[Rfam]
RNA sequence: CUACGCCCACCCUGUAGAUCCGAAUUUGUUUAUAAUUAAAGGACAAAUUCGGUUCUAGAGAGGUUUGUGUGGU
Numbered sequence: 001c002u003a004c005g006c007c008c009a010c011c012c013u014g015u016a017g018a019u020c021c022g023a024a025u026u027u028g029u030u031u032a033u034a035a036u037u038a039a040a041g042g043a044c045a046a047a048u049u050c051g052g053u054u055c056u057a058g059a060g061a062g063g064u065u066u067g068u069g070u071g072g073u
Stems, first nucleotide, its partner, number of pairs: 002071005010063002016056003020052011
Rfam assigns this 73-nucleotide RNA from Hermetia illucens to the family "mir-10 microRNA precursor family". Gene Ontology terms of the family: RISC complex and miRNA-mediated post-transcriptional gene silencing. The base pairs follow the family's consensus structure, which was predicted with PFOLD. The source organism's lineage runs through Eukaryota, Insecta, Pterygota, Diptera and Hermetia. A reference for the family is Lee and Ambros (2001), "An extensive class of small RNAs in Caenorhabditis elegans", Science.